[Rfam]
RNA sequence: UUACAAAUUCAAGGCCACAGCAGAAGUGCUCAUGGUGUGGCCUGUCAGAGUCCAACAAAUCUGCAAAUUCUGCC
Numbered sequence: 001u002u003a004c005a006a007a008u009u010c011a012a013g014g015c016c017a018c019a020g021c022a023g024a025a026g027u028g029c030u031c032a033u034g035g036u037g038u039g040g041c042c043u044g045u046c047a048g049a050g051u052c053c054a055a056c057a058a059a060u061c062u063g064c065a066a067a068u069u070c071u072g073c074c
Stems, first nucleotide, its partner, number of pairs: 013042004020073006026038003046063004051058001

A member of the RNA family "Mammalian CPEB3 ribozyme" from Alligator mississippiensis, 74 nucleotides long.
The mammalian CPEB3 ribozyme is a self cleaving RNA located in the second intron of the CPEB3 gene which belongs to a family of genes regulating messenger RNA polyadenylation.
The match comes from Rfam's covariance-model search (42 bits).
The literature on the family includes a 2004 paper in Nature by Teixeira et al., "Autocatalytic RNA cleavage in the human beta-globin pre-mRNA promotes transcription termination".